[Rfam]
RNA sequence: UGUACUUUGUGACGCUCUGAUCCAAAACCCAGGUGGGGUCAGAGCCGAUGUCUGUGCA
Numbered sequence: 001u002g003u004a005c006u007u008u009g010u011g012a013c014g015c016u017c018u019g020a021u022c023c024a025a026a027a028c029c030c031a032g033g034u035g036g037g038g039u040c041a042g043a044g045c046c047g048a049u050g051u052c053u054g055u056g057c058a
Stems, first nucleotide, its partner, number of pairs: 001058005014045010028035001
The record is a 58-nucleotide RNA sequence from Oreotrochilus melanogaster, which matches "Selenocysteine insertion sequence 1" in Rfam. For this family Rfam cites "A novel RNA structural motif in the selenocysteine insertion element of eukaryotic selenoprotein mRNAs" (Walczak et al., RNA, 1996). The base pairs follow the family's consensus structure, which is taken from published work. It is annotated as a cis-regulatory element. A search with the family's covariance model found it, with a score of 36 bits. NCBI's taxonomy places the organism under Eukaryota, Eumetazoa, Euteleostomi, Strisores, Oreotrochilus. From the family's description: The incorporation of selenocysteine into a protein sequence is directed by an in-frame UGA codon (usually a stop codon) within the coding region of the mRNA. Selenoprotein mRNAs contain a conserved secondary structure in the 3' UTR that is required for the distinction of UGA stop from UGA selenocysteine.